[Rfam]
RNA: Histone 3' UTR stem-loop
Organism: Moschus moschiferus
Nucleotides: 046
Base pairs, nucleotide, nucleotide: 006021007020008019009018010017011016
Number, partner (000 for none) and nucleotide at each position: 001000c002000u003000a004000a005000a006021g007020g008019c009018u010017c011016u012000u013000u014000u015000c016011a017010g018009a019008g020007c021006c022000a023000u024000c025000c026000a027000c028000a029000u030000u031000u032000u033000c034000a035000u036000a037000a038000a039000a040000a041000g042000c043000u044000g045000g046000u